[Rfam]
RNA sequence: AUCGCUUCUCGGCCUUUUGGCUAAGAUCAAGUGUAGUAUCUGUUCUUUUCAGUUUAAUAUCUGAUACGUCCCCUAUCUGGGGACCAUAUAUUAAAUUGAUUUAUGGAACAGUGAGAUGGAAUAGGGGCUUGCUCUUUUAUUUUUAUUUUUUAAAAAAAAAAAGAGAA
Numbered sequence: 001a002u003c004g005c006u007u008c009u010c011g012g013c014c015u016u017u018u019g020g021c022u023a024a025g026a027u028c029a030a031g032u033g034u035a036g037u038a039u040c041u042g043u044u045c046u047u048u049u050c051a052g053u054u055u056a057a058u059a060u061c062u063g064a065u066a067c068g069u070c071c072c073c074u075a076u077c078u079g080g081g082g083a084c085c086a087u088a089u090a091u092u093a094a095a096u097u098g099a100u101u102u103a104u105g106g107a108a109c110a111g112u113g114a115g116a117u118g119g120a121a122u123a124g125g126g127g128c129u130u131g132c133u134c135u136u137u138u139a140u141u142u143u144u145a146u147u148u149u150u151u152a153a154a155a156a157a158a159a160a161a162a163g164a165g166a167a
Stems, first nucleotide, its partner, number of pairs: 007026003011022004047066001049064004068084006113143007124135004147166005
This 167-nucleotide sequence from Polypterus senegalus belongs to the Rfam family "U2 spliceosomal RNA". Its family is annotated with U2 snRNP, pre-mRNA branch point binding and mRNA branch site recognition in the Gene Ontology. By type it is a spliceosomal small nuclear RNA. U2 is a small nuclear RNA (snRNA) component of the spliceosome (involved in pre-mRNA splicing). Rfam 15.1 lists 71,512 matches to the family in 2,642 species. The base pairs follow the family's consensus structure, which is taken from published work.